Shown here is a 107-nucleotide RNA sequence from Muraenolepis orangiensis, a member of the family "Small nucleolar RNA U6-53/MBII-28". The family has 25 seed sequences and 780 matches in Rfam 15.1. The organism belongs to Muraenolepis, within Eukaryota. Pairs were carried over by alignment from the consensus structure.
RNA sequence: CUCCUGUGAUGAUCCAAGCCAUGCUAAUACUGAUGCACUGGGCGGAUGCGCUGUGUGCGUCUGUCCUGCUGCAAUUGAGUUCAACUCAACUUCUCACGCUGAUGGGA
Numbered sequence: 001c002u003c004c005u006g007u008g009a010u011g012a013u014c015c016a017a018g019c020c021a022u023g024c025u026a027a028u029a030c031u032g033a034u035g036c037a038c039u040g041g042g043c044g045g046a047u048g049c050g051c052u053g054u055g056u057g058c059g060u061c062u063g064u065c066c067u068g069c070u071g072c073a074a075u076u077g078a079g080u081u082c083a084a085c086u087c088a089a090c091u092u093c094u095c096a097c098g099c100u101g102a103u104g105g106g107a
Stems, first nucleotide, its partner, number of pairs: 001106003043063005